Background:
Shown here is a 136-nucleotide sequence from Drosophila ananassae, a member of the family "Small nucleolar RNA snoR639/H1". snoR639 or snoH1 belongs to the H/ACA class of snoRNAs which are thought to guide the sites of modification of uridines to pseudouridines. snoH1 is found in an intron of the mfl gene in Drosophila. The source organism's lineage runs through Eukaryota, Opisthokonta, Pterygota, Eremoneura and ananassae species complex.

[Rfam]
RNA sequence: ACCCCAGGAUAUUAAGCCGGCAGUUGCUUUGAUUCCCACGAGCGUCUGUGACUAUGAUUGGGAACAGUAAUGCUAUAUGAUGUGUGCAUGUUGGGCAACGUAUUCUGCGCGCUUAACGAAGAAAUUUCAGCCGACA
Numbered sequence: 001a002c003c004c005c006a007g008g009a010u011a012u013u014a015a016g017c018c019g020g021c022a023g024u025u026g027c028u029u030u031g032a033u034u035c036c037c038a039c040g041a042g043c044g045u046c047u048g049u050g051a052c053u054a055u056g057a058u059u060g061g062g063a064a065c066a067g068u069a070a071u072g073c074u075a076u077a078u079g080a081u082g083u084g085u086g087c088a089u090g091u092u093g094g095g096c097a098a099c100g101u102a103u104u105c106u107g108c109g110c111g112c113u114u115a116a117c118g119a120a121g122a123a124a125u126u127u128c129a130g131c132c133g134a135c136a
Stems, first nucleotide, its partner, number of pairs: 020049004025044003076130001078129003089118007099109003
It is annotated as an H/ACA-box small nucleolar RNA. The base pairs follow the family's consensus structure.